[Rfam]
Rfam assigns this 134-nucleotide RNA from Phaseolus vulgaris to the family "small nucleolar RNA snoR135". It scores 71 bits against the family's covariance model. Rfam links the family to the GO terms nucleolus and RNA processing. The literature on the family includes a 2009 paper in Nucleic Acids Res by Chen and Wu, "Mining small RNA sequencing data: a new approach to identify small nucleolar RNAs in Arabidopsis".
RNA sequence: CUGGCGGGAUUGUGUGUAUAGGUGGUGUGCUACAACCAUUGUUCCGAAAGAGUUCCCUGCAAAACAAAUUUGGGGAAGAUAGGCAGUUGUGUUUCAGUUUGCUGUUGAAAAUAACAAAAAUCAUCACUACAUUU
Dot-bracket structure: ...((((((......(((.....................)))...........)).))))...........((.((.(((.....((((......................))))....))).)).))......